[Rfam]
RNA sequence: ACCCAAACAGAGAGAAGCCUGCCGUUUGCGUUGGGGUUUCUGAUCAUCGCUAGCUCAGCCCGUCUCGCGUCCGGCCCUCUGCUUGAUUUCGAAAGCGCUGUUGCUGAUUCUCAAUUUUUUCUGGUGUGAUUUGGUUGCAGGUUGGGUUAUGCAAGUUAUGGGGUGCGAAAGACUGAAAGCAUGGUGAGAUUCAUUCCGAGUUCCUACACUGCUGACUUGAAUCGAGUGUCGACUGGACAUGAGGAUGGAAUGGGCACGGCGUCCAGAUCGGGACCCAUCUAGAGUUGGUGUCAAAGCUUAGUGCUUGUCUGAGCUGGGUAGCGCUGUACCUGUUGCCUGAUUCUUUGAAAGUUGAUAUUUGUUUCUCUGGUAAGAGGUGUUUCUGGAGUGGAUGAUCUCAUGGAGGGGCUCGGAAUGUGGGCAGGCUCAUUGGGGGCAGCCCUGGGUUGUCUCUUCGGAGGCAACCCCUCCAAUUUUUGGGG
Numbered sequence: 001a002c003c004c005a006a007a008c009a010g011a012g013a014g015a016a017g018c019c020u021g022c023c024g025u026u027u028g029c030g031u032u033g034g035g036g037u038u039u040c041u042g043a044u045c046a047u048c049g050c051u052a053g054c055u056c057a058g059c060c061c062g063u064c065u066c067g068c069g070u071c072c073g074g075c076c077c078u079c080u081g082c083u084u085g086a087u088u089u090c091g092a093a094a095g096c097g098c099u100g101u102u103g104c105u106g107a108u109u110c111u112c113a114a115u116u117u118u119u120u121c122u123g124g125u126g127u128g129a130u131u132u133g134g135u136u137g138c139a140g141g142u143u144g145g146g147u148u149a150u151g152c153a154a155g156u157u158a159u160g161g162g163g164u165g166c167g168a169a170a171g172a173c174u175g176a177a178a179g180c181a182u183g184g185u186g187a188g189a190u191u192c193a194u195u196c197c198g199a200g201u202u203c204c205u206a207c208a209c210u211g212c213u214g215a216c217u218u219g220a221a222u223c224g225a226g227u228g229u230c231g232a233c234u235g236g237a238c239a240u241g242a243g244g245a246u247g248g249a250a251u252g253g254g255c256a257c258g259g260c261g262u263c264c265a266g267a268u269c270g271g272g273a274c275c276c277a278u279c280u281a282g283a284g285u286u287g288g289u290g291u292c293a294a295a296g297c298u299u300a301g302u303g304c305u306u307g308u309c310u311g312a313g314c315u316g317g318g319u320a321g322c323g324c325u326g327u328a329c330c331u332g333u334u335g336c337c338u339g340a341u342u343c344u345u346u347g348a349a350a351g352u353u354g355a356u357a358u359u360u361g362u363u364u365c366u367c368u369g370g371u372a373a374g375a376g377g378u379g380u381u382u383c384u385g386g387a388g389u390g391g392a393u394g395a396u397c398u399c400a401u402g403g404a405g406g407g408g409c410u411c412g413g414a415a416u417g418u419g420g421g422c423a424g425g426c427u428c429a430u431u432g433g434g435g436g437c438a439g440c441c442c443u444g445g446g447u448u449g450u451c452u453c454u455u456c457g458g459a460g461g462c463a464a465c466c467c468c469u470c471c472a473a474u475u476u477u478u479g480g481g482g
Stems, first nucleotide, its partner, number of pairs: 272292003275288003294306004
Shown here is a 482-nucleotide part of an RNA from Lachnellula willkommii, a member of the family "Ascomycota telomerase RNA". Taxonomically the source falls in Lachnellula (Eukaryota, Fungi, Leotiomycetes, Helotiales). The family's RNA type in Rfam is non-coding RNA gene.